[Rfam]
RNA sequence: AGAACACACAUUCAUUAUCCUUAGGACCAUAGGAUAAACAAAAACGUUGUAAAACCAAGUUAUCAUAUCCUAGAAUGAUUCUAACACGAUAACUAACCUAUGUCUUUGAUAUCAGCUGAUGGGAAAAACUC
Number, nucleotide and partner (000 for none) at each position: 001a000002g000003a000004a000005c000006a000007c000008a000009c121010a120011u119012u118013c000014a000015u115016u114017a000018u000019c000020c000021u000022u108023a107024g106025g105026a000027c000028c102029a101030u100031a099032g098033g097034a000035u000036a000037a000038a000039c000040a000041a000042a000043a000044a000045c000046g000047u000048u086049g085050u000051a000052a000053a080054a079055c000056c077057a076058a000059g000060u073061u072062a071063u000064c000065a000066u000067a000068u000069c000070c000071u062072a061073g060074a000075a000076u057077g056078a000079u054080u053081c000082u000083a000084a000085c049086a048087c000088g000089a000090u000091a000092a000093c000094u000095a000096a000097c033098c032099u031100a030101u029102g028103u000104c000105u025106u024107u023108g022109a000110u000111a000112u000113c000114a016115g015116c000117u000118g012119a011120u010121g009122g000123g000124a000125a000126a000127a000128a000129c000130u000131c000

MIR845_2 microRNA precursor family: a 131-nucleotide sequence from Vitis vinifera.
A search with the family's covariance model found it, with a score of 113 bits.